[Rfam]
RNA sequence: AAACUUUGUUUAUUCAGGGCACAGGUUUCUAGUAAUAGAAGCCUAGUCAGGUUGUGUGCAAUGUGUGCACACUUGGCAACAUUCUCAAAUUGCUUGAAGUUCCUUAUGGCUUAUACUACCGCGACUGAUUGAAAAAUUUAGUGCAGCAGAUGGUGUAAUGGCCAUUGGAUGGUAAAAACGUAUAAGAUUGGAUAAUGAGCAGCCAAGUUCUAACAAAAAGGUGUGUAAACAUCUUUUUCAUGAAUGCAGUUCACUGACUAAAUGGGAAUGGGUUGUUGUACAAGGUACAAUGGCUUAAGAUAUAGUCGAGUCCUAGGCGAAAGCUUGGG
Number, nucleotide and partner (000 for none) at each position: 001a000002a000003a000004c000005u025006u024007u023008g022009u021010u000011u019012a000013u017014u000015c000016a000017g013018g000019g011020c000021a009022c008023a007024g006025g005026u000027u000028u000029c038030u037031a036032g000033u000034a000035a000036u031037a030038g029039a000040a000041g000042c000043c000044u000045a000046g000047u000048c000049a000050g000051g000052u000053u000054g000055u000056g000057u000058g000059c000060a000061a000062u000063g000064u000065g000066u000067g000068c000069a000070c000071a000072c000073u000074u000075g000076g000077c000078a000079a000080c270081a269082u268083u267084c266085u000086c264087a263088a000089a000090u000091u201092g200093c199094u198095u197096g196097a000098a000099g000100u000101u192102c191103c190104u000105u000106a000107u000108g000109g000110c000111u000112u000113a000114u000115a000116c000117u000118a000119c000120c000121g000122c000123g000124a000125c000126u000127g000128a000129u000130u000131g000132a000133a000134a000135a000136a000137u000138u000139u000140a000141g000142u000143g000144c000145a000146g000147c000148a000149g000150a000151u000152g000153g000154u000155g000156u000157a000158a000159u000160g000161g000162c000163c000164a000165u000166u000167g000168g000169a000170u000171g000172g000173u000174a000175a000176a000177a000178a000179c000180g000181u000182a000183u000184a000185a000186g000187a000188u000189u000190g103191g102192a101193u000194a000195a000196u096197g095198a094199g093200c092201a091202g250203c249204c000205a000206a000207g245208u244209u243210c242211u000212a000213a000214c000215a238216a237217a236218a235219a234220g233221g232222u231223g230224u229225g000226u000227a000228a000229a224230c223231a222232u221233c220234u219235u218236u217237u216238u215239c000240a000241u000242g210243a209244a208245u207246g000247c000248a000249g203250u202251u000252c000253a000254c308255u000256g307257a306258c305259u304260a303261a000262a000263u087264g086265g000266g084267a083268a082269u081270g080271g000272g294273u293274u292275g291276u290277u289278g288279u287280a286281c000282a000283a000284g000285g000286u280287a279288c278289a277290a276291u275292g274293g273294c272295u000296u000297a000298a000299g000300a000301u000302a000303u260304a259305g258306u257307c256308g254309a000310g000311u000312c000313c000314u327315a326316g325317g324318c323319g000320a000321a000322a000323g318324c317325u316326u315327g314328g000329g000
RNA: Group I catalytic intron
Organism: Meira miltonrushii